Rfam assigns this 194-nucleotide RNA sequence from Taxus chinensis to the family "Small nucleolar RNA SNORA23". The members of this family belong to the H/ACA class of snoRNAs which are thought to guide the sites of modification of uridines to pseudouridines. This family includes human snoRNA ACA23 (SNORA23) and mouse snoMBI-1. ACA23 is predicted to guide the pseudouridylation of residue U3737 and U4331 of 28S rRNA. A reference for the family is Huttenhofer et al. (2001), "RNomics: an experimental approach that identifies 201 candidates for novel, small, non-messenger RNAs in mouse", EMBO J.
Nucleotides: 194
Base pairs, nucleotide, nucleotide: 013118014117015116016115028109029108030107032105033104034103035101036100037099038098039097040096042094043093044092045091046090049087050086051085052084053083054082055081056080129193130192132190133189142178143177144176145175146174149172150171151170154167155166156165157164158163
Number, partner (000 for none) and nucleotide at each position: 001000c002000u003000a004000u005000a006000u007000a008000u009000g010000u011000g012000u013118g014117u015116g016115u017000g018000g019000u020000g021000u022000g023000g024000u025000g026000u027000g028109u029108g030107u031000g032105u033104g034103u035101u036100g037099u038098g039097u040096g041000u042094g043093u044092g045091u046090g047000u048000g049087u050086g051085u052084g053083u054082a055081u056080a057000c058000u059000a060000c061000a062000c063000g064000c065000a066000u067000a068000u069000a070000u071000a072000u073000g074000u075000g076000u077000a078000u079000a080056u081055a082054u083053a084052c085051a086050u087049a088000u089000a090046c091045a092044c093043a094042c095000a096040c097039a098038c099037a100036c101035a102000c103034a104033c105032a106000c107030a108029c109028a110000u111000a112000u113000a114000c115016a116015u117014a118013c119000a120000c121000u122000a123000c124000a125000u126000a127000c128000a129193u130192a131000c132190a133189u134000a135000c136000a137000u138000g139000u140000u141000g142178g143177u144176g145175u146174g147000u148000g149172g150171u151170g152000u153000g154167u155166g156165u157164g158163u159000g160000u161000a162000c163158a164157c165156a166155c167154a168000c169000c170151c171150a172149c173000a174146c175145a176144c177143a178142c179000a180000c181000a182000u183000a184000c185000a186000u187000a188000u189133a190132u191000a192130u193129a194000a
NCBI's taxonomy places the organism under Eukaryota, Acrogymnospermae, Pinidae, Cupressales, Taxus. The match comes from Rfam's covariance-model search (47 bits). Gene Ontology terms of the family: RNA processing and nucleolus.